[Rfam]
The family of this 74-nucleotide RNA from Brachypodius melanocephalos is "mir-27 microRNA precursor family".
The family has 82 seed sequences and 1,440 matches in Rfam 15.1.
Gene Ontology terms of the family: RISC complex and miRNA-mediated post-transcriptional gene silencing.
The match comes from Rfam's covariance-model search (65 bits).
On this family, see Yao et al., J Virol 2008: "MicroRNA profile of Marek's disease virus-transformed T-cell line MSB-1: predominance of virus-encoded microRNAs".
The source organism's lineage runs through Eukaryota, Craniata, Teleostomi, Saurischia and Brachypodius.

RNA sequence: GGGGCAGGGCUUAGCCCACCUGUGAACAGAGUCCAGCCGCGCCGUGUUCACAGUGGCUAAGUUCCGCCUCCUGC
Numbered sequence: 001g002g003g004g005c006a007g008g009g010c011u012u013a014g015c016c017c018a019c020c021u022g023u024g025a026a027c028a029g030a031g032u033c034c035a036g037c038c039g040c041g042c043c044g045u046g047u048u049c050a051c052a053g054u055g056g057c058u059a060a061g062u063u064c065c066g067c068c069u070c071c072u073g074c
Stems, first nucleotide, its partner, number of pairs: 007064010022051007